[Rfam]
RNA sequence: ACGCUUUAGCUGGUUGAAUCCGGGCCAAAUUGUGCAAGAGUUGAAGACAUUUGGUCCCCUUCAACCAGCUGUAGUUG
Numbered sequence: 001a002c003g004c005u006u007u008a009g010c011u012g013g014u015u016g017a018a019u020c021c022g023g024g025c026c027a028a029a030u031u032g033u034g035c036a037a038g039a040g041u042u043g044a045a046g047a048c049a050u051u052u053g054g055u056c057c058c059c060u061u062c063a064a065c066c067a068g069c070u071g072u073a074g075u076u077g
Stems, first nucleotide, its partner, number of pairs: 003075003008070011022056002025054006
Background:
The family of this 77-nucleotide sequence from Zootermopsis nevadensis is "mir-133 microRNA precursor family". Rfam links the family to the GO terms miRNA-mediated post-transcriptional gene silencing and RISC complex. For this family Rfam cites "Identification of tissue-specific microRNAs from mouse" (Lagos-Quintana et al., Curr Biol, 2002). Rfam describes the family as follows. mir-133 was first experimentally characterised in mouse and homologues have since been discovered in several other species. The mature sequence is excised from the 3' arm of the hairpin. The family's consensus secondary structure was predicted with PFOLD.